[Rfam]
Nucleotides: 066
Base pairs, nucleotide, nucleotide: 001066003064004063005062006061007060009058010057011056012055013054017050018049019048020047021046022045023044024043025042026041029040030039
Number, partner (000 for none) and nucleotide at each position: 001066g002000u003064c004063g005062g006061u007060c008000u009058u010057c011056g012055g013054u014000a015000g016000u017050g018049g019048c020047u021046u022045u023044u024043c025042g026041g027000c028000c029040c030039g031000g032000u033000c034000g035000u036000g037000a038000a039030c040029g041026c042025c043024g044023g045022a046021g047020a048019g049018c050017u051000u052000c053000g054013a055012u056011c057010g058009a059000u060007g061006a062005c063004c064003g065000c066001c
Annotation:
Actino-pnp RNA: a 66-nucleotide RNA sequence from Nocardia jinanensis. Pairs were carried over by alignment from the consensus structure, which is taken from published work. The family's RNA type in Rfam is cis-regulatory element. Lineage of the source: Bacteria > Actinomycetota > Mycobacteriales > Nocardiaceae > Nocardia. The match comes from Rfam's covariance-model search (57 bits).